[Rfam]
RNA sequence: UAAUUUCUUCGGGGUAAGGUGAGAAAGUUUAAACUUUCAAUUCCUAACCGGCGGUUAUAGCCCGCGAGCCUUAUGGCAGGAACUGGUGAAAUUCCAGUGCCGACAGUAAAGUCUGGAUGAGAGAAGAAAAAA
Numbered sequence: 001u002a003a004u005u006u007c008u009u010c011g012g013g014g015u016a017a018g019g020u021g022a023g024a025a026a027g028u029u030u031a032a033a034c035u036u037u038c039a040a041u042u043c044c045u046a047a048c049c050g051g052c053g054g055u056u057a058u059a060g061c062c063c064g065c066g067a068g069c070c071u072u073a074u075g076g077c078a079g080g081a082a083c084u085g086g087u088g089a090a091a092u093u094c095c096a097g098u099g100c101c102g103a104c105a106g107u108a109a110a111g112u113c114u115g116g117a118u119g120a121g122a123g124a125a126g127a128a129a130a131a132a
Base pairs, nucleotide, nucleotide: 004129005128006127007126008125009124010123017045018044019043047112048111049102050101051065052064053063054062060100061099070076082098083097084096085095086094104115105114106113

About this RNA
FMN riboswitch aptamer (RFN element): a 132-nucleotide RNA from Desulfonispora thiosulfatigenes. The family's consensus secondary structure is taken from published work. The source organism's lineage runs through Bacteria, Bacillota, Peptococcaceae, Desulfonispora and Desulfonispora thiosulfatigenes. A search with the family's covariance model found it, with a score of 101 bits.